[Rfam]
RNA sequence: GCAUAUGUCGAGUUUGUGCGUGAAUCUAAUGUUUAAACACACACCUAGGUUUUGAGGGAUUUGGCAGUUAAUUAACACCAAAUCCCCCUUUCUGAAGUGUUGUCUUUGUAUGUUAGAUUCACGCACAAACUCGUAAUAUGUCU
Numbered sequence: 001g002c003a004u005a006u007g008u009c010g011a012g013u014u015u016g017u018g019c020g021u022g023a024a025u026c027u028a029a030u031g032u033u034u035a036a037a038c039a040c041a042c043a044c045c046u047a048g049g050u051u052u053u054g055a056g057g058g059a060u061u062u063g064g065c066a067g068u069u070a071a072u073u074a075a076c077a078c079c080a081a082a083u084c085c086c087c088c089u090u091u092c093u094g095a096a097g098u099g100u101u102g103u104c105u106u107u108g109u110a111u112g113u114u115a116g117a118u119u120c121a122c123g124c125a126c127a128a129a130c131u132c133g134u135a136a137u138a139u140g141u142c143u
Base pairs, nucleotide, nucleotide: 001141002140003139005137006136011131012130013129014128015127016126017125018124019123020122021121022120023119024118025117026116028114029113030112031111032110
A member of the RNA family "MIR403 microRNA precursor family" from Olea europaea, 143 nucleotides long.
The organism belongs to Olea europaea, within Eukaryota.
Rfam links the family to the GO terms RISC complex and miRNA-mediated post-transcriptional gene silencing.
On this family, see Mica et al., BMC Genomics 2009: "High throughput approaches reveal splicing of primary microRNA transcripts and tissue specific expression of mature microRNAs in Vitis vinifera".